[Rfam]
About this RNA
A member of the RNA family "MIR168 microRNA precursor family" from Camellia sinensis, 130 nucleotides long. NCBI's taxonomy places the organism under Eukaryota, Magnoliopsida, Mesangiospermae, Ericales, Camellia.

RNA sequence: GUUACGGCGGACUCUAAUUCGCUUGGUACAGGGUGGGAACUACUUCGCCGGCAGCGGCGAUUGAUUCUGAUUGAUUUAGGGGCGAAUCGGGUCCCGCCUUGCAUCAACUAAAUUGGAGACCGCCGUGAAC
Number, nucleotide and partner (000 for none) at each position: 001g000002u000003u000004a000005c000006g000007g000008c000009g000010g000011a000012c000013u117014c116015u000016a000017a113018u112019u111020c000021g000022c000023u107024u106025g105026g104027u103028a000029c101030a100031g099032g098033g000034u096035g095036g094037g093038a092039a000040c090041u089042a000043c000044u000045u000046c000047g000048c000049c000050g000051g000052c000053a000054g000055c000056g000057g000058c000059g000060a000061u000062u000063g000064a000065u000066u000067c000068u000069g000070a000071u000072u000073g000074a000075u000076u000077u000078a000079g000080g000081g000082g000083c000084g000085a000086a000087u000088c000089g041090g040091g000092u038093c037094c036095c035096g034097c000098c032099u031100u030101g029102c000103a027104u026105c025106a024107a023108c000109u000110a000111a019112a018113u017114u000115g000116g014117a013118g000119a000120c000121c000122g000123c000124c000125g000126u000127g000128a000129a000130c000
Pairs were carried over by alignment from the consensus structure, which was predicted with WAR.